[Rfam]
RNA sequence: AUGCAGGAUAAGUUACGGACUGGCUGUUGCAGUGCCGGUUUGUCGUUCCCCCUGCACACAUAAACGUGUUUCCUACUAUCCCUGUGCGUCUGCAUACCACGGCUCACAGGGACGCUUGGUCUCAGACAU
Numbered sequence: 001a002u003g004c005a006g007g008a009u010a011a012g013u014u015a016c017g018g019a020c021u022g023g024c025u026g027u028u029g030c031a032g033u034g035c036c037g038g039u040u041u042g043u044c045g046u047u048c049c050c051c052c053u054g055c056a057c058a059c060a061u062a063a064a065c066g067u068g069u070u071u072c073c074u075a076c077u078a079u080c081c082c083u084g085u086g087c088g089u090c091u092g093c094a095u096a097c098c099a100c101g102g103c104u105c106a107c108a109g110g111g112a113c114g115c116u117u118g119g120u121c122u123c124a125g126a127c128a129u
Stems, first nucleotide, its partner, number of pairs: 003055005015043010081110004086105001088103002
The record is a 129-nucleotide RNA sequence from Anabarilius grahami, which matches "Small nucleolar RNA SNORA63" in Rfam. A search with the family's covariance model found it, with a score of 93 bits. Taxonomically the source falls in Anabarilius (Eukaryota, Deuterostomia, Craniata, Cypriniformes). Pairs were carried over by alignment from the consensus structure, which was predicted with PFOLD. It is annotated as an H/ACA-box small nucleolar RNA. About the family: E3 belongs to the H/ACA class of snoRNAs and is involved in the processing of eukaryotic pre-rRNA and has regions of complementarity to 18S rRNA. E3 is encoded in introns in the gene for protein synthesis initiation factor 4AII.